RNA sequence: UUUGAGGGGAAUGUUAUCUGGUUCGAGGUCACCAUAUAUAUCUUUUUGUGAUAAUAUAUUACUAUUAUAUAAUGUCGUCGGACCAGGCUUCAUUCCCCUAAAC
Numbered sequence: 001u002u003u004g005a006g007g008g009g010a011a012u013g014u015u016a017u018c019u020g021g022u023u024c025g026a027g028g029u030c031a032c033c034a035u036a037u038a039u040a041u042c043u044u045u046u047u048g049u050g051a052u053a054a055u056a057u058a059u060u061a062c063u064a065u066u067a068u069a070u071a072a073u074g075u076c077g078u079c080g081g082a083c084c085a086g087g088c089u090u091c092a093u094u095c096c097c098c099u100a101a102a103c
Stems, first nucleotide, its partner, number of pairs: 002102002005099009017087005024080003
Source information: mir-166 microRNA precursor family: a 103-nucleotide RNA sequence from Anisodus acutangulus. Gene Ontology terms of the family: RISC complex and miRNA-mediated post-transcriptional gene silencing. About the family: This family represents the plant microRNA (miRNA) precursor mir-166. Taxonomically the source falls in Anisodus (Eukaryota, Streptophyta, Gunneridae, Hyoscyameae). The base pairs follow the family's consensus structure, which was predicted with PFOLD.